The family of this 132-nucleotide sequence from Planifilum fulgidum is "SAM riboswitch aptamer (S box leader)". It scores 86 bits against the family's covariance model. The source organism's lineage runs through Bacteria, Bacillati, Bacillota, Bacilli and Planifilum.
RNA sequence: UCGUUAUCCAGAGAGGCGGAGGGACUGGCCCGAUGAAGCCCGGCAACCUUGCCCCGUCACCCCUCGGGGUGGCGCCUUGAACGGGGCAAAGGUGCCAAUUCCUGCAGUGCCGGGGGCGCUGAGAGAUAAGGA
Numbered sequence: 001u002c003g004u005u006a007u008c009c010a011g012a013g014a015g016g017c018g019g020a021g022g023g024a025c026u027g028g029c030c031c032g033a034u035g036a037a038g039c040c041c042g043g044c045a046a047c048c049u050u051g052c053c054c055c056g057u058c059a060c061c062c063c064u065c066g067g068g069g070u071g072g073c074g075c076c077u078u079g080a081a082c083g084g085g086g087c088a089a090a091g092g093u094g095c096c097a098a099u100u101c102c103u104g105c106a107g108u109g110c111c112g113g114g115g116g117c118g119c120u121g122a123g124a125g126a127u128a129a130g131g132a
Stems, first nucleotide, its partner, number of pairs: 001132002004129005013041001015040003021031003025104001027102002042096004047092002050088008100124001105121006